[Rfam]
RNA sequence: ACAACUCUGGAGAGUGGCGCCAAAUGCGCCCGCCGAAGGGAUAACGAUCUCAGGCACCGUGACAGAGGGGGCAUC
Dot-bracket structure: .(..(((((......((((.......)))).(((((..((.......)))).))).......)))))..).....
Numbered sequence: 001a002c003a004a005c006u007c008u009g010g011a012g013a014g015u016g017g018c019g020c021c022a023a024a025u026g027c028g029c030c031c032g033c034c035g036a037a038g039g040g041a042u043a044a045c046g047a048u049c050u051c052a053g054g055c056a057c058c059g060u061g062a063c064a065g066a067g068g069g070g071g072c073a074u075c
Stems, first nucleotide, its partner, number of pairs: 002070001005067005016030004032055003035051002039049002